RNA sequence: AAGUGAAUAGGUGAUGGUGUUCGCCUUUAAAUGCUAACGAAAGAUAGCUAAUGACGCCUACUAAAGU
Numbered sequence: 001a002a003g004u005g006a007a008u009a010g011g012u013g014a015u016g017g018u019g020u021u022c023g024c025c026u027u028u029a030a031a032u033g034c035u036a037a038c039g040a041a042a043g044a045u046a047g048c049u050a051a052u053g054a055c056g057c058c059u060a061c062u063a064a065a066g067u
Base pairs, nucleotide, nucleotide: 010025011024012023013022016058017057018056019055020054021053033048034047035046036045
A member of the RNA family "Fluoride riboswitch aptamer (crcB RNA motif)", 67 nucleotides long.
The family's consensus secondary structure is taken from published work.
It is one of the family's seed sequences.